[Rfam]
RNA sequence: GGCUGAUGAUGUGAUGUUAUAUUUGCUACUCUUGAUGGGAAUUGAAAUUUUCCAUCUGAUGAUUCUUUAUCCACCAAGAUCUCUGAGGCC
Numbered sequence: 001g002g003c004u005g006a007u008g009a010u011g012u013g014a015u016g017u018u019a020u021a022u023u024u025g026c027u028a029c030u031c032u033u034g035a036u037g038g039g040a041a042u043u044g045a046a047a048u049u050u051u052c053c054a055u056c057u058g059a060u061g062a063u064u065c066u067u068u069a070u071c072c073a074c075c076a077a078g079a080u081c082u083c084u085g086a087g088g089c090c
Stems, first nucleotide, its partner, number of pairs: 001090004

The family of this 90-nucleotide RNA sequence from Dorcoceras hygrometricum is "Small nucleolar RNA SNORD24".
The literature on the family includes a 1995 paper in Nucleic Acids Res by Qu et al., "U24, a novel intron-encoded small nucleolar RNA with two 12 nt long, phylogenetically conserved complementarities to 28S rRNA".
The organism belongs to Dorcoceras, within Eukaryota.
By type it is a C/D-box small nucleolar RNA.
Rfam links the family to the GO terms RNA processing and nucleolus.